[Rfam]
RNA sequence: AGCACAAAUGAUGAUUUAUUGGGACUUAAUACUGAAUUUUUUGAUGUCUCUAGUAUGAGCUGAUGUGU
Numbered sequence: 001a002g003c004a005c006a007a008a009u010g011a012u013g014a015u016u017u018a019u020u021g022g023g024a025c026u027u028a029a030u031a032c033u034g035a036a037u038u039u040u041u042u043g044a045u046g047u048c049u050c051u052a053g054u055a056u057g058a059g060c061u062g063a064u065g066u067g068u
Stems, first nucleotide, its partner, number of pairs: 002068005

The record is a 68-nucleotide sequence from Anolis carolinensis, which matches "Small nucleolar RNA SNORD82" in Rfam. On this family, see Galardi et al., Mol Cell Biol 2002: "Purified box C/D snoRNPs are able to reproduce site-specific 2'-O-methylation of target RNA in vitro". The family's consensus secondary structure was predicted with PFOLD. The organism belongs to Anolis, within Eukaryota. From the family's description: snoRNA U82 or Z25 is found in both humans and mice. Rfam classes the family as a C/D-box small nucleolar RNA.